[Rfam]
RNA sequence: GCAUGUCUGUGAUGCUAAUUUCUUUACCUACAUUGUUCGAGGUUCCUCUGAGAAUAUUCUAUAUAACUGAGACAUGU
Numbered sequence: 001g002c003a004u005g006u007c008u009g010u011g012a013u014g015c016u017a018a019u020u021u022c023u024u025u026a027c028c029u030a031c032a033u034u035g036u037u038c039g040a041g042g043u044u045c046c047u048c049u050g051a052g053a054a055u056a057u058u059c060u061a062u063a064u065a066a067c068u069g070a071g072a073c074a075u076g077u
Stems, first nucleotide, its partner, number of pairs: 001077002004074004
The record is a 77-nucleotide sequence from Silurus meridionalis, which matches "Small nucleolar RNA SNORD34" in Rfam. The match comes from Rfam's covariance-model search (47 bits). Clan: SNORD34 clan. The base pairs follow the family's consensus structure, which was predicted with PFOLD. Lineage of the source: Eukaryota > Opisthokonta > Craniata > Siluroidei > Silurus. The family's RNA type in Rfam is C/D-box small nucleolar RNA. From the family's description: snoRNA U34 is found in intron 5 of the ribosomal protein L13a gene in humans. A reference for the family is Galardi et al. (2002), "Purified box C/D snoRNPs are able to reproduce site-specific 2'-O-methylation of target RNA in vitro", Mol Cell Biol. Gene Ontology terms of the family: RNA processing and nucleolus.